[Rfam]
RNA: Ruegeria cis8 sRNA
RNA sequence: AUGGCAAGCAAUUUGGCAAUGUAAGGGAUCAACGGUAGGUUCAGGAUCAACAGCACAAGGUUGCCGAUAAACAUCGACAUGAUGACUGCCCAGAAAAUCUGUGGUUCGUCAAUCAUCAGGCGGGGCCC
Numbered sequence: 001a002u003g004g005c006a007a008g009c010a011a012u013u014u015g016g017c018a019a020u021g022u023a024a025g026g027g028a029u030c031a032a033c034g035g036u037a038g039g040u041u042c043a044g045g046a047u048c049a050a051c052a053g054c055a056c057a058a059g060g061u062u063g064c065c066g067a068u069a070a071a072c073a074u075c076g077a078c079a080u081g082a083u084g085a086c087u088g089c090c091c092a093g094a095a096a097a098u099c100u101g102u103g104g105u106u107c108g109u110c111a112a113u114c115a116u117c118a119g120g121c122g123g124g125g126c127c128c
Base pairs, nucleotide, nucleotide: 004017005016007014008013026128027127029125030124033122034121036119038114039113040112043109045107046106048104050102051101052100053099061093062092063091067087072084073083074082075081
Dot-bracket structure: ...((.((....)).))........((.((..((.(.(((..(.((.(.((((.......(((...(....((((.....))))..)...))).....)))).).)).)..)))....).)).)).))